RNA: Acido-Lenti-1 RNA
Organism: Desulfonema magnum
RNA sequence: CCCGGCAAUGAAUUGCCGGGCUAUUCUCAAGAGUCCCUACGGGACU
Numbered sequence: 001c002c003c004g005g006c007a008a009u010g011a012a013u014u015g016c017c018g019g020g021c022u023a024u025u026c027u028c029a030a031g032a033g034u035c036c037c038u039a040c041g042g043g044a045c046u
Stems, first nucleotide, its partner, number of pairs: 001020008033045005